[Rfam]
RNA sequence: ACGGAAGCCCGACGAGGCCAAGGUCGAUCCGGAAGAGAAGGACCGAUCUCCUGAACCGGGAAUCCCAGCACGGACCACGGCACCCACGCGGAGCACGCCGCGACAAGGGCAGAAGCGUUGUGGGCCUGCGUAAUCACGAACAGAGACAGCUCAUCAGGCUUCUUGGGUGAAGCCCGAGCUAGAAGCGUCGUGAAAGCGCCGAGGCCACCCACACAACCCAUAAUGCACGCUUGGUAACCGGAGGAUCCGUGCUAACGGGCGGCGGGCCGAUUCAUUCGGACCGUCGCCCGUUUUUACGC
Number, nucleotide and partner (000 for none) at each position: 001a000002c000003g065004g064005a000006a000007g000008c060009c059010c058011g057012a000013c000014g000015a000016g052017g051018c000019c000020a000021a049022g048023g000024u000025c045026g044027a000028u042029c041030c040031g000032g000033a000034a000035g000036a000037g000038a000039a000040g030041g029042a028043c000044c026045g025046a000047u000048c022049u021050c000051c017052u016053g000054a000055a000056c000057c011058g010059g009060g008061a000062a000063u000064c004065c003066c000067a253068g252069c251070a250071c249072g248073g247074a246075c000076c000077a000078c240079g239080g238081c000082a000083c000084c234085c233086a232087c000088g230089c229090g228091g000092a000093g226094c225095a000096c000097g110098c109099c108100g000101c000102g000103a000104c000105a000106a000107g000108g099109g098110c097111a000112g000113a000114a000115g000116c000117g217118u216119u215120g214121u213122g212123g206124g205125c204126c203127u202128g199129c198130g197131u196132a000133a000134u193135c192136a191137c190138g189139a188140a000141c000142a000143g186144a000145g000146a000147c000148a180149g179150c178151u177152c176153a000154u000155c000156a000157g174158g173159c172160u171161u170162c169163u000164u000165g000166g000167g000168u000169g162170a161171a160172g159173c158174c157175c000176g152177a151178g150179c149180u148181a000182g000183a000184a000185g000186c143187g000188u139189c138190g137191u136192g135193a134194a000195a000196g131197c130198g129199c128200c000201g000202a127203g126204g125205c124206c123207a000208c000209c000210c000211a000212c122213a121214c120215a119216a118217c117218c000219c000220a000221u000222a000223a000224u000225g094226c093227a000228c090229g089230c088231u000232u086233g085234g084235u000236a000237a000238c080239c079240g078241g000242a000243g000244g000245a000246u074247c073248c072249g071250u070251g069252c068253u067254a000255a291256c290257g289258g288259g287260c286261g285262g284263c283264g282265g281266g000267c279268c278269g277270a000271u000272u000273c000274a000275u000276u000277c269278g268279g267280a000281c265282c264283g263284u262285c261286g260287c259288c258289c257290g256291u255292u000293u000294u000295u000296a000297c000298g000299c000

A member of the RNA family "Mycobacterium smegmatis small RNA 1" from Mycobacteroides franklinii, 299 nucleotides long. Rfam links the family to the GO term RNA polymerase binding. The base pairs follow the family's consensus structure, which was predicted with CMfinder. From the family's description: Mycobacterium smegmatis small RNA 1 is highly expressed during stationary phase of growth. Ms1 RNA directly interacts with RNA polymerase (RNAP), but in a different way than 6S, which is present in other bacteria. Ms1 does not require the presence of the main sigma factor for RNAP interaction. The source organism's lineage runs through Bacteria, Bacillati, Actinomycetes, Mycobacteriales and Mycobacteroides.